[Rfam]
RNA sequence: UCAGCUGCUGUGUCUUAUGGCUUUUUAUUCCUAUGUGAUAAUAAAUGGAUCUCAUGUAGGGAUACAAGCCACUAAACACACAGUGA
Numbered sequence: 001u002c003a004g005c006u007g008c009u010g011u012g013u014c015u016u017a018u019g020g021c022u023u024u025u026u027a028u029u030c031c032u033a034u035g036u037g038a039u040a041a042u043a044a045a046u047g048g049a050u051c052u053c054a055u056g057u058a059g060g061g062a063u064a065c066a067a068g069c070c071a072c073u074a075a076a077c078a079c080a081c082a083g084u085g086a
Stems, first nucleotide, its partner, number of pairs: 002085002005083002009080005015074001018071006027063012

A member of the RNA family "mir-135 microRNA precursor family" from Astyanax mexicanus, 86 nucleotides long. The family's consensus secondary structure was predicted with PFOLD. The source organism's lineage runs through Eukaryota, Teleostomi, Clupeocephala, Ostariophysi and Astyanax.